[Rfam]
Rfam assigns this 35-nucleotide sequence from Roseivirga misakiensis to the family "DUF805b RNA".
The source organism's lineage runs through Bacteria, Pseudomonadati, Bacteroidota, Cytophagales and Roseivirga.
Clan: DUF805 clan.
The match comes from Rfam's covariance-model search (38 bits).
RNA sequence: UAGGGCGUUCCGAAAACCCUUUAAUAGAGUAGGAA
Number, nucleotide and partner (000 for none) at each position: 001u000002a020003g019004g018005g017006c000007g000008u000009u000010c033011c032012g000013a000014a000015a000016a000017c005018c004019c003020u002021u000022u000023a000024a000025u000026a000027g000028a000029g000030u000031a000032g011033g010034a000035a000
The family's consensus secondary structure is taken from published work.